Annotation: Rfam assigns this 121-nucleotide RNA from Thermosinus carboxydivorans to the family "c-di-AMP riboswitch aptamer (ydaO/yuaA leader)". Lineage of the source: Bacteria > Bacillota > Sporomusaceae > Thermosinus > Thermosinus carboxydivorans.
RNA sequence: AGCUAUAUAAAGCCUAAUCCAGCUCAGGAGCGGGGGAACCAUUACUGGGGUGAAACUCUUUAGGAGUGGGGUGCCUUCAACCCUAACCCGUCAGCUAACCUCGUCGGCUUAGAGAGGAGAA
Numbered sequence: 001a002g003c004u005a006u007a008u009a010a011a012g013c014c015u016a017a018u019c020c021a022g023c024u025c026a027g028g029a030g031c032g033g034g035g036g037a038a039c040c041a042u043u044a045c046u047g048g049g050g051u052g053a054a055a056c057u058c059u060u061u062a063g064g065a066g067u068g069g070g071g072u073g074c075c076u077u078c079a080a081c082c083c084u085a086a087c088c089c090g091u092c093a094g095c096u097a098a099c100c101u102c103g104u105c106g107g108c109u110u111a112g113a114g115a116g117g118a119g120a121a
Stems, first nucleotide, its partner, number of pairs: 011109004018029003030104006040047002048089003056066004069083004